[Rfam]
Nucleotides: 123
Base pairs, nucleotide, nucleotide: 007038008037009036010035011034012033015030016029043076044075045074046073047072048071049070050069051068052067087118088117089116090115091114092113093112094111095110096109097108
Number, partner (000 for none) and nucleotide at each position: 001000c002000g003000a004000a005000a006000a007038u008037g009036c010035g011034c012033u013000g014000a015030u016029c017000c018000a019000c020000c021000u022000c023000c024000u025000c026000c027000c028000g029016g030015a031000a032000a033012g034011g035010c036009g037008c038007g039000u040000u041000u042000g043076a044075u045074g046073g047072u048071u049070c050069g051068g052067u053000c054000u055000u056000c057000c058000u059000c060000c061000u062000c063000c064000c065000u066000g067052a068051c069050c070049g071048g072047a073046u074045c075044g076043u077000c078000a079000c080000a081000u082000c083000u084000g085000a086000a087118g088117c089116g090115g091114c092113g093112g094111c095110a096109u097108c098000a099000c100000c101000u102000c103000c104000u105000c106000c107000c108097g109096a110095u111094g112093u113092c114091g115090c116089c117088g118087c119000a120000u121000c122000a123000c
The family of this 123-nucleotide RNA sequence from Octadecabacter sp. SW4 is "Alphaproteobacterial ar14". The match comes from Rfam's covariance-model search (60 bits). Its family is annotated with biological process involved in symbiotic interaction in the Gene Ontology. The source organism's lineage runs through Bacteria, Pseudomonadota, Rhodobacterales, Roseobacteraceae and Octadecabacter.